Shown here is a 116-nucleotide RNA sequence from Aquibacillus salsiterrae, a member of the family "SAM riboswitch aptamer (S box leader)". It scores 91 bits against the family's covariance model.
[Rfam]
RNA sequence: UUCUUAUCCAGAGAGGUGGAGGGACUGGCCCGAUGAAACCCGGCAACCAUCAAGUUUUUCAUGAACUUGAAAAGGUGCCAAUUCCUGCUAAGCACAGUAUGCUUGGAAGAUAAGAG
Numbered sequence: 001u002u003c004u005u006a007u008c009c010a011g012a013g014a015g016g017u018g019g020a021g022g023g024a025c026u027g028g029c030c031c032g033a034u035g036a037a038a039c040c041c042g043g044c045a046a047c048c049a050u051c052a053a054g055u056u057u058u059u060c061a062u063g064a065a066c067u068u069g070a071a072a073a074g075g076u077g078c079c080a081a082u083u084c085c086u087g088c089u090a091a092g093c094a095c096a097g098u099a100u101g102c103u104u105g106g107a108a109g110a111u112a113a114g115a116g
Stems, first nucleotide, its partner, number of pairs: 001116008013041001015040003021031003025087001027085002042079004047075002050070007083108001088105001090104005